RNA sequence: ACGCGUGCUCCGGGGUCGGUGUAAUUCCGAGCCGGCGGUAACAGUCCGCGAGCCCGUCCUCUCGAGGCCGGGUUGAGCUGGUGGAACUCCAGCACCGACGGUGAAAGUCCGGAUGGGAGGCAGCACGCGA
Numbered sequence: 001a002c003g004c005g006u007g008c009u010c011c012g013g014g015g016u017c018g019g020u021g022u023a024a025u026u027c028c029g030a031g032c033c034g035g036c037g038g039u040a041a042c043a044g045u046c047c048g049c050g051a052g053c054c055c056g057u058c059c060u061c062u063c064g065a066g067g068c069c070g071g072g073u074u075g076a077g078c079u080g081g082u083g084g085a086a087c088u089c090c091a092g093c094a095c096c097g098a099c100g101g102u103g104a105a106a107g108u109c110c111g112g113a114u115g116g117g118a119g120g121c122a123g124c125a126c127g128c129g130a
Stems, first nucleotide, its partner, number of pairs: 003128007010119001017029003031108002033097002035049004044095002052073003077093005099111003
FMN riboswitch aptamer (RFN element): a 130-nucleotide RNA sequence from Janibacter indicus. The organism belongs to Janibacter, within Bacteria.